COG3943 RNA: a 115-nucleotide sequence. It is one of the family's seed sequences. Rfam classes the family as a small RNA.

[Rfam]
RNA sequence: CACGCUCCACACAAGGCAUUAAUUGUCUUGAGAAUGUGACCGUCUCGGGGAUUGACGUAACACCAGUAGUUGGAAUUGGUUGGGAUAUACCGAUUGCUGACUACAUAAUUGGUGU
Numbered sequence: 001c002a003c004g005c006u007c008c009a010c011a012c013a014a015g016g017c018a019u020u021a022a023u024u025g026u027c028u029u030g031a032g033a034a035u036g037u038g039a040c041c042g043u044c045u046c047g048g049g050g051a052u053u054g055a056c057g058u059a060a061c062a063c064c065a066g067u068a069g070u071u072g073g074a075a076u077u078g079g080u081u082g083g084g085a086u087a088u089a090c091c092g093a094u095u096g097c098u099g100a101c102u103a104c105a106u107a108a109u110u111g112g113u114g115u
Base pairs, nucleotide, nucleotide: 012030013029014028015027016026017025018024041057042056043055044054060115061114062113063112064111066104067103068102069101070100071099072098073097075094076093077092078091079090080089